Source information
The family of this 195-nucleotide sequence from Rouxiella badensis is "Yersinia sRNA 276". The base pairs follow the family's consensus structure, which was predicted with RNAfold. The organism belongs to Rouxiella, within Bacteria. The family's RNA type in Rfam is antisense RNA.
RNA sequence: CACCGACAUCAGCGACUCGUUCUGCGAGCCCUGACCCACGGCCAGAUAGGCGUUCAUUCCCAGCUCUUUCAUCUGCUGUUCGCCGAUGACGCGGGUGGUGAUAUUAGUGCUGAACGCAUCGGCCAGCUGGCGAGCCUGUGAGGCCAGAUAAGCGGCGUUACAGAUGUUCGGCGGCAUGUUGCCCAGAUCUUUCGC
Numbered sequence: 001c002a003c004c005g006a007c008a009u010c011a012g013c014g015a016c017u018c019g020u021u022c023u024g025c026g027a028g029c030c031c032u033g034a035c036c037c038a039c040g041g042c043c044a045g046a047u048a049g050g051c052g053u054u055c056a057u058u059c060c061c062a063g064c065u066c067u068u069u070c071a072u073c074u075g076c077u078g079u080u081c082g083c084c085g086a087u088g089a090c091g092c093g094g095g096u097g098g099u100g101a102u103a104u105u106a107g108u109g110c111u112g113a114a115c116g117c118a119u120c121g122g123c124c125a126g127c128u129g130g131c132g133a134g135c136c137u138g139u140g141a142g143g144c145c146a147g148a149u150a151a152g153c154g155g156c157g158u159u160a161c162a163g164a165u166g167u168u169c170g171g172c173g174g175c176a177u178g179u180u181g182c183c184c185a186g187a188u189c190u191u192u193c194g195c
Base pairs, nucleotide, nucleotide: 005189006188012032014030016028017027018026019025020024033043035041050059062077063076064075078135079134080133081132082131083130084129085128087126091123092122094120095119096118097117099112100111102109103108136163137162138161140159141158143156144155145154167186168185170183171182172181